The family of this 85-nucleotide RNA from Neobacillus mesonae is "c-di-GMP-I riboswitch aptamer". Rfam's curators write: GEMM was predicted in a large-scale screen for bacterial structured RNA regulatory elements. The match comes from Rfam's covariance-model search (73 bits). Its family is annotated with cyclic-di-GMP binding in the Gene Ontology. The base pairs follow the family's consensus structure, which is taken from published work.
[Rfam]
RNA sequence: AUUUGAAAAAGGCACAGCUAUCGAAAGGUAGUUUCGCAAAACCACAGACCUAAAGCACAUCUGCCAUGGUAGCUGGGUUACUGAA
Dot-bracket structure: ...........((...((((((....))))))...))..((((.((((((....(((....)))...)))..)))))))......